The family of this 106-nucleotide RNA sequence from Medicago truncatula is "MIR2593 microRNA precursor family". Its family is annotated with miRNA-mediated post-transcriptional gene silencing and RISC complex in the Gene Ontology. Pairs were carried over by alignment from the consensus structure, which was predicted with RNAalifold. The organism belongs to Medicago, within Eukaryota.
RNA sequence: UUAUAAGCAAAACUUUGCAUUUUAGAUUCAUUCAUUAAAUGAUAUAUGUGGUAUACCACAUAUAUCAUUUAAUGAAUGAAUCUAAAAUGCAAAAUUUUGCUUAUAG
Numbered sequence: 001u002u003a004u005a006a007g008c009a010a011a012a013c014u015u016u017g018c019a020u021u022u023u024a025g026a027u028u029c030a031u032u033c034a035u036u037a038a039a040u041g042a043u044a045u046a047u048g049u050g051g052u053a054u055a056c057c058a059c060a061u062a063u064a065u066c067a068u069u070u071a072a073u074g075a076a077u078g079a080a081u082c083u084a085a086a087a088u089g090c091a092a093a094a095u096u097u098u099g100c101u102u103a104u105a106g
Stems, first nucleotide, its partner, number of pairs: 002105006009098004015092011027080018049058003